[Rfam]
RNA sequence: GAGGAGGCUAUAAUGUUUCGAUUACUUCGCUUUGUAAAUCAACGGUAGAUUGUUUUGCUUUUCACAAAAAUGUUGUAGGUUCGAUCCCUACUGAAGCACCACUCAAUCGAACGUGCGAUCCUUCUCUUUU
Number, nucleotide and partner (000 for none) at each position: 001g000002a125003g124004g123005a122006g121007g120008c000009u000010a000011u000012a000013a114014u113015g112016u111017u000018u110019c109020g108021a107022u000023u000024a000025c000026u000027u084028c083029g082030c000031u000032u000033u000034g000035u000036a000037a000038a000039u000040c000041a000042a000043c000044g000045g000046u000047a000048g000049a000050u000051u000052g000053u000054u000055u000056u000057g000058c000059u000060u000061u000062u000063c000064a000065c000066a000067a000068a000069a000070a000071u000072g000073u000074u000075g000076u000077a000078g000079g000080u000081u000082c029083g028084a027085u000086c000087c000088c000089u000090a000091c000092u000093g000094a000095a000096g000097c000098a000099c000100c000101a000102c000103u000104c000105a000106a000107u021108c020109g019110a018111a016112c015113g014114u013115g000116c000117g000118a000119u000120c007121c006122u005123u004124c003125u002126c000127u000128u000129u000130u000

Vault RNA: a 130-nucleotide RNA sequence from Adineta ricciae.
A search with the family's covariance model found it, with a score of 35 bits.
The base pairs follow the family's consensus structure, which is taken from published work.
Rfam classes the family as a non-coding RNA gene.
Rfam's curators write: This family of RNAs are found as part of the enigmatic vault ribonucleoprotein complex.